The record is a 169-nucleotide sequence from Vagococcus acidifermentans, which matches "Lysine riboswitch aptamer" in Rfam.
The base pairs follow the family's consensus structure, which is taken from published work.
The organism belongs to Vagococcus, within Bacteria.
Rfam describes the family as follows. Riboswitches are metabolite binding domains within certain messenger RNAs that serve as precision sensors for their corresponding targets. Allosteric rearrangement of mRNA structure is mediated by ligand binding, and this results in modulation of gene expression. This family includes riboswitches that sense lysine in a number of genes involved in lysine metabolism, including lysC.
Gene Ontology term of the family: lysine biosynthetic process.
[Rfam]
RNA sequence: AUAAGAAGUAGAGGUUGCGGUGCAUCAGAGUAGCUGAGGGAGUGGGCACACAAGGAAAUUAGCGAAAGGUAAUCAUCGCCGAAUUUCAACUGUUGGCAAACGGUUGAAAUGGUGGAAAGGAGAAUAUCCUUUUCACUCAUUCUUUAGAUAGAAUGGUGCUAUCUUGAUU
Numbered sequence: 001a002u003a004a005g006a007a008g009u010a011g012a013g014g015u016u017g018c019g020g021u022g023c024a025u026c027a028g029a030g031u032a033g034c035u036g037a038g039g040g041a042g043u044g045g046g047c048a049c050a051c052a053a054g055g056a057a058a059u060u061a062g063c064g065a066a067a068g069g070u071a072a073u074c075a076u077c078g079c080c081g082a083a084u085u086u087c088a089a090c091u092g093u094u095g096g097c098a099a100a101c102g103g104u105u106g107a108a109a110u111g112g113u114g115g116a117a118a119g120g121a122g123a124a125u126a127u128c129c130u131u132u133u134c135a136c137u138c139a140u141u142c143u144u145u146a147g148a149u150a151g152a153a154u155g156g157u158g159c160u161a162u163c164u165u166g167a168u169u
Stems, first nucleotide, its partner, number of pairs: 006164001008162004017079006025071001033063003083110012111137011139154005